RNA: Enterobacteria greA leader
RNA sequence: GUCAUACUACGGCGCAACGCCCCAAAAAGUAAACGAUGACCCAUCGGGAACUCCAGGGUAAAAUGAUCAUCAAAUAGAGAAUUGUAGCUGACCUGGGACCUUGAGCCCCGGGUCGGUAUUUUUU
Numbered sequence: 001g002u003c004a005u006a007c008u009a010c011g012g013c014g015c016a017a018c019g020c021c022c023c024a025a026a027a028a029g030u031a032a033a034c035g036a037u038g039a040c041c042c043a044u045c046g047g048g049a050a051c052u053c054c055a056g057g058g059u060a061a062a063a064u065g066a067u068c069a070u071c072a073a074a075u076a077g078a079g080a081a082u083u084g085u086a087g088c089u090g091a092c093c094u095g096g097g098a099c100c101u102u103g104a105g106c107c108c109c110g111g112g113u114c115g116g117u118a119u120u121u122u123u124u
Stems, first nucleotide, its partner, number of pairs: 001040005010035002014030002041048002057071003087117008095108003
Dot-bracket structure: (((((....((..((.............))...)))))))((....))........(((.........)))...............(((((((((((........))).)))))))).......